[Rfam]
Rfam assigns this 60-nucleotide RNA from Clostridium niameyense to the family "Fluoride riboswitch aptamer (crcB RNA motif)". The match comes from Rfam's covariance-model search (50 bits). The literature on the family includes a 2012 paper in Science by Baker et al., "Widespread genetic switches and toxicity resistance proteins for fluoride".

RNA sequence: UAUAUAUUGGGUGAUGGAGUUCACCUUUAAAUGCUUUACGCUAAUAACUCCUACUUUAUA
Number, nucleotide and partner (000 for none) at each position: 001u000002a000003u000004a000005u000006a000007u000008u000009g000010g025011g024012u023013g022014a000015u000016g051017g050018a049019g048020u047021u046022c013023a012024c011025c010026u000027u000028u000029a000030a000031a000032u000033g041034c040035u000036u000037u000038a000039c000040g034041c033042u000043a000044a000045u000046a021047a020048c019049u018050c017051c016052u000053a000054c000055u000056u000057u000058a000059u000060a000